[Rfam]
RNA sequence: CCUCUUCGUGAUGAUGAGAUCAUUGCUUAUCUCCUAGCGGGUCUUCCCCCAGAUUACGAUCCGUUCAUCACAUCUAUGACGACAAAGAGUGAGCCCCUCAUGCUCGAUGACGUCUACUCACAUCUGCUAGCAUUUGAGG
Numbered sequence: 001c002c003u004c005u006u007c008g009u010g011a012u013g014a015u016g017a018g019a020u021c022a023u024u025g026c027u028u029a030u031c032u033c034c035u036a037g038c039g040g041g042u043c044u045u046c047c048c049c050c051a052g053a054u055u056a057c058g059a060u061c062c063g064u065u066c067a068u069c070a071c072a073u074c075u076a077u078g079a080c081g082a083c084a085a086a087g088a089g090u091g092a093g094c095c096c097c098u099c100a101u102g103c104u105c106g107a108u109g110a111c112g113u114c115u116a117c118u119c120a121c122a123u124c125u126g127c128u129a130g131c132a133u134u135u136g137a138g139g
Stems, first nucleotide, its partner, number of pairs: 004138003008134001088108001090106004
The record is a 139-nucleotide sequence from Miscanthus lutarioriparius, which matches "Small nucleolar RNA Z247" in Rfam. The match comes from Rfam's covariance-model search (45 bits). The organism belongs to Miscanthus, within Eukaryota. The base pairs follow the family's consensus structure, which was predicted with PFOLD. Its family is annotated with nucleolus and RNA processing in the Gene Ontology.